[Rfam]
RNA sequence: CCUUUCCAUGAUACGAUGCGAUCUAUUCACUGCACCACCUUGAUCCGUGGGUGAGUGGAGGGGAAAAGAUUGCUAGAACAACCUCUCAGACACGUUCCUCAUACCAACGCCUUGUAUAUUUGUCGGGCUGUUGGUCUGCGUGUUGAGACAUUU
Numbered sequence: 001c002c003u004u005u006c007c008a009u010g011a012u013a014c015g016a017u018g019c020g021a022u023c024u025a026u027u028c029a030c031u032g033c034a035c036c037a038c039c040u041u042g043a044u045c046c047g048u049g050g051g052u053g054a055g056u057g058g059a060g061g062g063g064a065a066a067a068g069a070u071u072g073c074u075a076g077a078a079c080a081a082c083c084u085c086u087c088a089g090a091c092a093c094g095u096u097c098c099u100c101a102u103a104c105c106a107a108c109g110c111c112u113u114g115u116a117u118a119u120u121u122g123u124c125g126g127g128c129u130g131u132u133g134g135u136c137u138g139c140g141u142g143u144u145g146a147g148a149c150a151u152u153u
Base pairs, nucleotide, nucleotide: 018073019072021070022069030060031059033057034056036053037052038051039050040049085147086146087145088144089143092141093140094139104134105133106132108130109129111127112126113125114124116123